[Rfam]
RNA sequence: AAUAUUGCGACGGGGAGCUGGCUGAAGCCGGCUGAGAGGAGACUGAGUGGUCUCGACCCAGAACCUGAUUUGGAUAAUGCCAACGUAGGGAGAGAUACCGGAAAAUGA
Numbered sequence: 001a002a003u004a005u006u007g008c009g010a011c012g013g014g015g016a017g018c019u020g021g022c023u024g025a026a027g028c029c030g031g032c033u034g035a036g037a038g039g040a041g042a043c044u045g046a047g048u049g050g051u052c053u054c055g056a057c058c059c060a061g062a063a064c065c066u067g068a069u070u071u072g073g074a075u076a077a078u079g080c081c082a083a084c085g086u087a088g089g090g091a092g093a094g095a096u097a098c099c100g101g102a103a104a105a106u107g108a
Stems, first nucleotide, its partner, number of pairs: 008094001012059003017032005039054005064089004070083004
Background
Rfam assigns this 108-nucleotide RNA from Lachnoclostridium sp. An196 to the family "TPP riboswitch aptamer (THI element)". The family's consensus secondary structure is taken from published work. NCBI's taxonomy places the organism under Bacteria, Bacillati, Bacillota, Lachnospirales, Lachnoclostridium.